[Rfam]
RNA: bZIP non canonical Hac1/Xbp1 intron
Organism: Moelleriella libera
RNA sequence: GCUUUCCCCGACCUGACACAACAUCCUGCUGAGAUGUUGUUGGACCUGCAGUGUCAACAGUCGGGGAAAGC
Numbered sequence: 001g002c003u004u005u006c007c008c009c010g011a012c013c014u015g016a017c018a019c020a021a022c023a024u025c026c027u028g029c030u031g032a033g034a035u036g037u038u039g040u041u042g043g044a045c046c047u048g049c050a051g052u053g054u055c056a057a058c059a060g061u062c063g064g065g066g067a068a069a070g071c
Stems, first nucleotide, its partner, number of pairs: 001071006008064005020038006043055003